[Rfam]
RNA sequence: ACUCAACACAAAUCAAUUAAAAUGAGUGAAACUUUGUUGUAAAAGCACGCCAUUUCGUAUGGAUCCUUGAGCAGCAAGAUAACUCAAAACCUGUUUUUACAGAGUUU
Numbered sequence: 001a002c003u004c005a006a007c008a009c010a011a012a013u014c015a016a017u018u019a020a021a022a023u024g025a026g027u028g029a030a031a032c033u034u035u036g037u038u039g040u041a042a043a044a045g046c047a048c049g050c051c052a053u054u055u056c057g058u059a060u061g062g063a064u065c066c067u068u069g070a071g072c073a074g075c076a077a078g079a080u081a082a083c084u085c086a087a088a089a090c091c092u093g094u095u096u097u098u099a100c101a102g103a104g105u106u107u
Stems, first nucleotide, its partner, number of pairs: 023086005034077005043068003050062004
Dot-bracket structure: ......................(((((......(((((....(((....((((.....))))...)))....)))))....))))).....................
RNA: 6S-Flavo RNA